RNA: Rhizobiales sRNA Atu_C9
RNA sequence: UACCAACGCAAGGAGGACCGCGAUGGGGUUUACACAAUCUGUCAAUGCCCUAGUGAUCUGUGCUGCGUUCAUCUUCGUCGGAGCCAUGCUCUUUAUCUGAGGCUCACCCCGUCCCCCCAAAAGUGACGAAGAAGAGAAACGACAAAAAAAUGCAGGGAGGCAGGAGCGCGAUGCUCCUGCCUUUU
Numbered sequence: 001u002a003c004c005a006a007c008g009c010a011a012g013g014a015g016g017a018c019c020g021c022g023a024u025g026g027g028g029u030u031u032a033c034a035c036a037a038u039c040u041g042u043c044a045a046u047g048c049c050c051u052a053g054u055g056a057u058c059u060g061u062g063c064u065g066c067g068u069u070c071a072u073c074u075u076c077g078u079c080g081g082a083g084c085c086a087u088g089c090u091c092u093u094u095a096u097c098u099g100a101g102g103c104u105c106a107c108c109c110c111g112u113c114c115c116c117c118c119a120a121a122a123g124u125g126a127c128g129a130a131g132a133a134g135a136g137a138a139a140c141g142a143c144a145a146a147a148a149a150a151u152g153c154a155g156g157g158a159g160g161c162a163g164g165a166g167c168g169c170g171a172u173g174c175u176c177c178u179g180c181c182u183u184u185u
Base pairs, nucleotide, nucleotide: 015049016048018047026040027039028038155185156184157183158182159181160180161179162178163177164176165175166174167173